[Rfam]
RNA sequence: GAGUGCACGGCCGUGGCGAGGCUAAGGGGUUCACCCCCGUAACCGCAGGGAAACCGACGAGCCCGCAGGGGCUCAUGCCCCGAGGGGCGGGGUCCGCAAGGGCCCGGAGUCACGGUCGUGCGACCCGAAACCGGGCGAUCUAGGCGGGGGCAGGGUGAAGCCGGGCGAAAGCCCGGUGGAGGCCCGCAAGGGUUCUGACGUGCAAUUCGUUCCCCUGACCUCCGCCUAGGGGUGAAAGGCCAAUCUAGCUCGGUGAUAGCUGGUU
Numbered sequence: 001g002a003g004u005g006c007a008c009g010g011c012c013g014u015g016g017c018g019a020g021g022c023u024a025a026g027g028g029g030u031u032c033a034c035c036c037c038c039g040u041a042a043c044c045g046c047a048g049g050g051a052a053a054c055c056g057a058c059g060a061g062c063c064c065g066c067a068g069g070g071g072c073u074c075a076u077g078c079c080c081c082g083a084g085g086g087g088c089g090g091g092g093u094c095c096g097c098a099a100g101g102g103c104c105c106g107g108a109g110u111c112a113c114g115g116u117c118g119u120g121c122g123a124c125c126c127g128a129a130a131c132c133g134g135g136c137g138a139u140c141u142a143g144g145c146g147g148g149g150g151c152a153g154g155g156u157g158a159a160g161c162c163g164g165g166c167g168a169a170a171g172c173c174c175g176g177u178g179g180a181g182g183c184c185c186g187c188a189a190g191g192g193u194u195c196u197g198a199c200g201u202g203c204a205a206u207u208c209g210u211u212c213c214c215c216u217g218a219c220c221u222c223c224g225c226c227u228a229g230g231g232g233u234g235a236a237a238g239g240c241c242a243a244u245c246u247a248g249c250u251c252g253g254u255g256a257u258a259g260c261u262g263g264u265u
Base pairs, nucleotide, nucleotide: 005121006120007119008118009117010116011115012114013113014112015111016110017109020044021043023041026038027037028036029035048055049054061088062087063086064085068081069080070079071078091104092103093102094101124263125262127260131253132252133251134250135249136248140229141228142227143226144225145224146223147222148221149220150219151217153185154184155183156182160177161176162175163174164173165172166171190214191213192212195209197208198207231241232240233239
Rfam assigns this 265-nucleotide part of an RNA from Ignicoccus hospitalis to the family "Archaeal large subunit ribosomal RNA". The organism belongs to Ignicoccus hospitalis, within Archaea. A reference for the family is Yusupov et al. (2001), "Crystal structure of the ribosome at 5.5 A resolution", Science. The family's consensus secondary structure is taken from published work. The family is grouped with related families in Rfam's "LSU clan".